[Rfam]
RNA sequence: CAGUUAAAAAGCUCGUAGUUGAAUUUCGGGUUUCCGGCGCUCCCGCUUCAUUGCGGGGACACGGGGACCCUCCUCGCCUUAGGGCGUCAUUUACUGUGGAAAAAUUAGAGUGUUCAAAGCAGGCAAUCGCUUGAAUACAUUAGCAUGGAAUAAUAAGAUAGGAUUACGUCUAUUUUGUUGGUUGCGGACGAUAAUAAUGAUUAAUAGGGAUAGUUGGGGGUGUCCGUAUUGAGCUGUCAGAGGUGAAAUUCUUGGAUUUGCUCAAGACGAACUACUGCGAAAGCAUUCACCAAGGAUGUUUUCAUUAAUCAAGAACGAAAGUCAGGGGAUCGAAGAGGAUUAGAUACCCUCGUAGUCUUGACCAUAAACUAUGCCGACUCGGGAUUGGCAGACGUUGUAUCGACUCUGUCAGCACCGUAUGAUAAAUCAAAGUCUUUGGGUUCCGGGGGGAGUAUGGUCGCAAGGCUGAAACUUAAAGGAAU
Numbered sequence: 001c002a003g004u005u006a007a008a009a010a011g012c013u014c015g016u017a018g019u020u021g022a023a024u025u026u027c028g029g030g031u032u033u034c035c036g037g038c039g040c041u042c043c044c045g046c047u048u049c050a051u052u053g054c055g056g057g058g059a060c061a062c063g064g065g066g067a068c069c070c071u072c073c074u075c076g077c078c079u080u081a082g083g084g085c086g087u088c089a090u091u092u093a094c095u096g097u098g099g100a101a102a103a104a105u106u107a108g109a110g111u112g113u114u115c116a117a118a119g120c121a122g123g124c125a126a127u128c129g130c131u132u133g134a135a136u137a138c139a140u141u142a143g144c145a146u147g148g149a150a151u152a153a154u155a156a157g158a159u160a161g162g163a164u165u166a167c168g169u170c171u172a173u174u175u176u177g178u179u180g181g182u183u184g185c186g187g188a189c190g191a192u193a194a195u196a197a198u199g200a201u202u203a204a205u206a207g208g209g210a211u212a213g214u215u216g217g218g219g220g221u222g223u224c225c226g227u228a229u230u231g232a233g234c235u236g237u238c239a240g241a242g243g244u245g246a247a248a249u250u251c252u253u254g255g256a257u258u259u260g261c262u263c264a265a266g267a268c269g270a271a272c273u274a275c276u277g278c279g280a281a282a283g284c285a286u287u288c289a290c291c292a293a294g295g296a297u298g299u300u301u302u303c304a305u306u307a308a309u310c311a312a313g314a315a316c317g318a319a320a321g322u323c324a325g326g327g328g329a330u331c332g333a334a335g336a337g338g339a340u341u342a343g344a345u346a347c348c349c350u351c352g353u354a355g356u357c358u359u360g361a362c363c364a365u366a367a368a369c370u371a372u373g374c375c376g377a378c379u380c381g382g383g384a385u386u387g388g389c390a391g392a393c394g395u396u397g398u399a400u401c402g403a404c405u406c407u408g409u410c411a412g413c414a415c416c417g418u419a420u421g422a423u424a425a426a427u428c429a430a431a432g433u434c435u436u437u438g439g440g441u442u443c444c445g446g447g448g449g450g451a452g453u454a455u456g457g458u459c460g461c462a463a464g465g466c467u468g469a470a471a472c473u474u475a476a477a478g479g480a481a482u
Stems, first nucleotide, its partner, number of pairs: 001445001003443001009442001011316001013314002018309003207303004211298002214295002219291004225269002229265006236258001240251003277284002321362006331355001335351004373441003376434003380417003385412008394404003421428002447474003456467004
Dot-bracket structure: (.(.....(.(.((...(((..........................................................................................................................................................................................((((((.((...((((..((..((((((.(...(((......)))......).))))))..)).......((....))...))))..)).)).))))...)))...)).)....((((((....(...((((.........))))...).))))))..........((((((.(((..((((((((.(((.....)))))))))))..)))...((....))...)))....))))).).(((......((((....))))....)))........
This 482-nucleotide part of an RNA from uncultured picobiliphyte belongs to the Rfam family "Eukaryotic small subunit ribosomal RNA". Rfam's curators put it in the seed alignment. The family's consensus secondary structure is taken from published work. On this family, see Yusupov et al., Science 2001: "Crystal structure of the ribosome at 5.5 A resolution". NCBI's taxonomy places the organism under Eukaryota, Picozoa.